[Rfam]
RNA sequence: CUGGGAACAACAUCCUGAUGCUGUCUGAGUAUGUCAUUCACAACUCCAGCAUUAGUGAUUUUGUUGCCAG
Numbered sequence: 001c002u003g004g005g006a007a008c009a010a011c012a013u014c015c016u017g018a019u020g021c022u023g024u025c026u027g028a029g030u031a032u033g034u035c036a037u038u039c040a041c042a043a044c045u046c047c048a049g050c051a052u053u054a055g056u057g058a059u060u061u062u063g064u065u066g067c068c069a070g
Stems, first nucleotide, its partner, number of pairs: 006065005012059003015055009
Rfam assigns this 70-nucleotide RNA from Takifugu flavidus to the family "mir-338 microRNA precursor family". The source organism's lineage runs through Eukaryota, Metazoa, Clupeocephala, Percomorphaceae and Takifugu. Pairs were carried over by alignment from the consensus structure, which was predicted with RNAalifold. Rfam links the family to the GO terms miRNA-mediated post-transcriptional gene silencing and RISC complex.